The record is a 161-nucleotide RNA sequence from Anaeromicropila populeti, which matches "glmS glucosamine-6-phosphate activated ribozyme aptamer" in Rfam. It scores 65 bits against the family's covariance model. Taxonomically the source falls in Anaeromicropila (Bacteria, Bacillati, Bacillota, Clostridia). The base pairs follow the family's consensus structure, which is taken from published work. This entry contains a glucosamine-6-phosphate activated ribozyme that is found in the mRNA for GlmS. GlmS is an enzyme that uses fructose-6-phosphate and glutamine to generate glucosamine-6-phosphate. The ribozyme catalyses self cleavage of the glmS mRNA that is thought to regulate GlmS activity.

RNA sequence: GCAAUAAAACUAGCGCCAUGCACCUUUUCAUAUUGUGAAAAAGGUUAACGAGGUAGGAAGAGUAUCGAAAAUUCGGCGGAUGCUUCCUCGCGUUUUCUGGACGUGUAAUAUGUUGCUAAAAAUCUGGGUAACUAGCCAACAAGAGUAACAUAACCAGUAAA
Dot-bracket structure: .....................((((((((.......).)))))))..........(((((....((((....))))......))))).(((((.......)))))....(((((((.......((((....)))).........)))))))..........